Background:
The record is a 397-nucleotide RNA from Sphingomonas carotinifaciens, which matches "Bacterial RNase P class A" in Rfam. The source organism's lineage runs through Bacteria, Pseudomonadota, Sphingomonadales, Sphingomonadaceae and Sphingomonas. The literature on the family includes a 1998 paper in Annu Rev Biochem by Frank and Pace, "Ribonuclease P: unity and diversity in a tRNA processing ribozyme". The match comes from Rfam's covariance-model search (284 bits). The family's RNA type in Rfam is ribozyme. The family's consensus secondary structure is taken from published work.
RNA sequence: CCAGAGGGUCGGGCGGCCGCGGCUCCAGCGAUGGAGGCGAGGAAAGUCCGGGCUCCGCGGAACAACGGUGCCGGGUAACGCCCGGCGGGGGCGACCCCAGGGACAGUGCAACAGAGAGCAGACGACCCAAUCCUUCGGGACGAAGCCUUCGGGCAGGUCAAGGUGAAAGGGUGCGGCAAGAGCGCACCGCGGCCCUGGUAACAGGGACGGCACGGCAAACCCCACCGGGAGCAAGACCGAAUAGGGAUGGCAUGGGCCUUCAUGGUCCGGGGCGUGUUCCCGCCCGCCGUCCGGGUUGGUUGCUUGAGGCGGCGCGCAAGCGUCGUCCUAGACGAAUGGUCGCCCAUCCGGCCUUGUGGCCGGUGGACAGAACCCGGCUUACAGACCCUCUGGCGUU
Numbered sequence: 001c002c003a004g005a006g007g008g009u010c011g012g013g014c015g016g017c018c019g020c021g022g023c024u025c026c027a028g029c030g031a032u033g034g035a036g037g038c039g040a041g042g043a044a045a046g047u048c049c050g051g052g053c054u055c056c057g058c059g060g061a062a063c064a065a066c067g068g069u070g071c072c073g074g075g076u077a078a079c080g081c082c083c084g085g086c087g088g089g090g091g092c093g094a095c096c097c098c099a100g101g102g103a104c105a106g107u108g109c110a111a112c113a114g115a116g117a118g119c120a121g122a123c124g125a126c127c128c129a130a131u132c133c134u135u136c137g138g139g140a141c142g143a144a145g146c147c148u149u150c151g152g153g154c155a156g157g158u159c160a161a162g163g164u165g166a167a168a169g170g171g172u173g174c175g176g177c178a179a180g181a182g183c184g185c186a187c188c189g190c191g192g193c194c195c196u197g198g199u200a201a202c203a204g205g206g207a208c209g210g211c212a213c214g215g216c217a218a219a220c221c222c223c224a225c226c227g228g229g230a231g232c233a234a235g236a237c238c239g240a241a242u243a244g245g246g247a248u249g250g251c252a253u254g255g256g257c258c259u260u261c262a263u264g265g266u267c268c269g270g271g272g273c274g275u276g277u278u279c280c281c282g283c284c285c286g287c288c289g290u291c292c293g294g295g296u297u298g299g300u301u302g303c304u305u306g307a308g309g310c311g312g313c314g315c316g317c318a319a320g321c322g323u324c325g326u327c328c329u330a331g332a333c334g335a336a337u338g339g340u341c342g343c344c345c346a347u348c349c350g351g352c353c354u355u356g357u358g359g360c361c362g363g364u365g366g367a368c369a370g371a372a373c374c375c376g377g378c379u380u381a382c383a384g385a386c387c388c389u390c391u392g393g394c395g396u397u
Stems, first nucleotide, its partner, number of pairs: 001393010011382001012344007020039002023036005044380003048377005053231004062278001066227005071085005086100001087098004101222002106220002108216002123162001125158003131152002170188006189211001190209002193206005235301004245292006270285005308327008